[Rfam]
RNA sequence: CGGGGGGAGGGGGAGGUCCCUCAGCCCAGAUUGCGAGAGGGCACAGUCCAGGCCAAGGGACCCCACCGGUGCAUG
Numbered sequence: 001c002g003g004g005g006g007g008a009g010g011g012g013g014a015g016g017u018c019c020c021u022c023a024g025c026c027c028a029g030a031u032u033g034c035g036a037g038a039g040g041g042c043a044c045a046g047u048c049c050a051g052g053c054c055a056a057g058g059g060a061c062c063c064c065a066c067c068g069g070u071g072c073a074u075g
Stems, first nucleotide, its partner, number of pairs: 004072001006070001009067002012064002015062007024053003029048005035042001
RNA: mir-9193 microRNA precursor family
Organism: Myotis lucifugus